The record is a 151-nucleotide sequence from Paenalkalicoccus suaedae, which matches "FMN riboswitch aptamer (RFN element)" in Rfam.
The organism belongs to Paenalkalicoccus, within Bacteria.
RNA sequence: CGUUUCCUUCGGGGUCGGGUGCAAGUCCCAACCGGCGGUGAUAAGGCAUUUUGUGCCUUUUAGUCCGUGACCCGUUUUAACAUUUGUUUUAACGGUGGAUUUGGUGAAAUUCCAAAGCCGACAGUAAAAGUCUGGAUGGGAGAAGGAUGAG
Numbered sequence: 001c002g003u004u005u006c007c008u009u010c011g012g013g014g015u016c017g018g019g020u021g022c023a024a025g026u027c028c029c030a031a032c033c034g035g036c037g038g039u040g041a042u043a044a045g046g047c048a049u050u051u052u053g054u055g056c057c058u059u060u061u062a063g064u065c066c067g068u069g070a071c072c073c074g075u076u077u078u079a080a081c082a083u084u085u086g087u088u089u090u091a092a093c094g095g096u097g098g099a100u101u102u103g104g105u106g107a108a109a110u111u112c113c114a115a116a117g118c119c120g121a122c123a124g125u126a127a128a129a130g131u132c133u134g135g136a137u138g139g140g141a142g143a144a145g146g147a148u149g150a151g
Stems, first nucleotide, its partner, number of pairs: 003149001005147006017029003031131002033120002035068004063118002072095004100116005122134003